RNA sequence: CUCUCAUGGCCAGAAGUUACAAGCUCAAGGGCUUGUAUCCAGUGCAGAGAGAUUAAAGGGGCCUGUUUCCAUUCCGUCAAGGAAGAAAAUAUAUUUGUUAUGAAUGCCGAAAGUAACUUUAAUAAGUGAAAUCCGCAACGCAUAA
Numbered sequence: 001c002u003c004u005c006a007u008g009g010c011c012a013g014a015a016g017u018u019a020c021a022a023g024c025u026c027a028a029g030g031g032c033u034u035g036u037a038u039c040c041a042g043u044g045c046a047g048a049g050a051g052a053u054u055a056a057a058g059g060g061g062c063c064u065g066u067u068u069c070c071a072u073u074c075c076g077u078c079a080a081g082g083a084a085g086a087a088a089a090u091a092u093a094u095u096u097g098u099u100a101u102g103a104a105u106g107c108c109g110a111a112a113g114u115a116a117c118u119u120u121a122a123u124a125a126g127u128g129a130a131a132u133c134c135g136c137a138a139c140g141c142a143u144a145a
Stems, first nucleotide, its partner, number of pairs: 001051005009045002016039001018037007073083003098145005105137003109133002116127004
RNA: RT-14 RNA
Organism: Clostridium sp. HMP27